[Rfam]
RNA sequence: AAUUUUAAAAACAAAAUCACUCGUAUAUACUCAGAAAUAAGGUCUGAGAGUUUCUACCGAGAUACCGUAAAAAUCUUGACUAUGAGUGAAAUUAUUAUACAU
Numbered sequence: 001a002a003u004u005u006u007a008a009a010a011a012c013a014a015a016a017u018c019a020c021u022c023g024u025a026u027a028u029a030c031u032c033a034g035a036a037a038u039a040a041g042g043u044c045u046g047a048g049a050g051u052u053u054c055u056a057c058c059g060a061g062a063u064a065c066c067g068u069a070a071a072a073a074u075c076u077u078g079a080c081u082a083u084g085a086g087u088g089a090a091a092u093u094a095u096u097a098u099a100c101a102u
Stems, first nucleotide, its partner, number of pairs: 018088008030048006058078006